[Rfam]
RNA sequence: CAGAAUACAUGAUGAUCUCACCUCAGCUUGAACUCUCUCACUGAUAACCUGAUGGAGAUAACAGAUCUGAUAUUCUG
Dot-bracket structure: (((((((...............................................................)))))))
Notes
The family of this 77-nucleotide RNA from Ochotona princeps is "Small nucleolar RNA SNORD81". Taxonomically the source falls in Ochotona (Eukaryota, Deuterostomia, Teleostomi, Ochotonidae). Its family is annotated with RNA processing and nucleolus in the Gene Ontology. The sequence is in the family's curated seed alignment. The base pairs follow the family's consensus structure, which was predicted with PFOLD.